This 56-nucleotide sequence belongs to the Rfam family "Streptococcus sRNA SpF59 (ldcC RNA)".
RNA sequence: GGACCACUUUCCAUGGGAAAAGUCAAGGCCAUACGGACAGCCGGGUCCACUGCCGA
Number, nucleotide and partner (000 for none) at each position: 001g048002g047003a046004c045005c044006a023007c022008u021009u020010u019011c000012c000013a000014u000015g000016g000017g000018a000019a010020a009021a008022g007023u006024c000025a000026a000027g000028g000029c000030c000031a000032u000033a000034c000035g000036g000037a000038c000039a000040g000041c000042c000043g000044g005045g004046u003047c002048c001049a000050c000051u000052g000053c000054c000055g000056a000

The literature on the family includes a 2012 paper in PLoS Pathog by Mann et al., "Control of virulence by small RNAs in Streptococcus pneumoniae".